[Rfam]
RNA sequence: CCGUGCUAGCCGGGGAGAUAGCGGUGCCCUGUACCUGCAAUCCGCUAUAGCAGGGGUGAUGUUCUGUUUCGGAUGCAUUGAUUGCGGAGCCGCCCGAUAUAAGUGGUGAUGACGUUUUGGUCUUGCGCAAUGGGAACUCAUGAACCGUGUCAGGAGGGGAACCUAGCAGCACUAAGUGAGCCCUCCCGUGUGCCGUGAGGUUGCCGGAGCCGAGCUAACUGUAUUGGUAACGUCUGCAAUGAUGCGUACAACGCAGAAUGCACGG
Numbered sequence: 001c002c003g004u005g006c007u008a009g010c011c012g013g014g015g016a017g018a019u020a021g022c023g024g025u026g027c028c029c030u031g032u033a034c035c036u037g038c039a040a041u042c043c044g045c046u047a048u049a050g051c052a053g054g055g056g057u058g059a060u061g062u063u064c065u066g067u068u069u070c071g072g073a074u075g076c077a078u079u080g081a082u083u084g085c086g087g088a089g090c091c092g093c094c095c096g097a098u099a100u101a102a103g104u105g106g107u108g109a110u111g112a113c114g115u116u117u118u119g120g121u122c123u124u125g126c127g128c129a130a131u132g133g134g135a136a137c138u139c140a141u142g143a144a145c146c147g148u149g150u151c152a153g154g155a156g157g158g159g160a161a162c163c164u165a166g167c168a169g170c171a172c173u174a175a176g177u178g179a180g181c182c183c184u185c186c187c188g189u190g191u192g193c194c195g196u197g198a199g200g201u202u203g204c205c206g207g208a209g210c211c212g213a214g215c216u217a218a219c220u221g222u223a224u225u226g227g228u229a230a231c232g233u234c235u236g237c238a239a240u241g242a243u244g245c246g247u248a249c250a251a252c253g254c255a256g257a258a259u260g261c262a263c264g265g
Stems, first nucleotide, its partner, number of pairs: 001265006009057003012030004017025001019023001034054005063258001064256004069251001071249001073247004079242001081240008092228001095226006103219002105216003114210008122199006128190002131188005137180005147172004155164003
Description:
Rfam assigns this 265-nucleotide sequence from Roseburia sp. CAG:380 to the family "Bacterial large signal recognition particle RNA". The family's consensus secondary structure is taken from published work. Gene Ontology terms of the family: SRP-dependent cotranslational protein targeting to membrane, signal sequence recognition and signal recognition particle, plasma membrane targeting. A search with the family's covariance model found it, with a score of 185 bits. By type it is a non-coding RNA gene.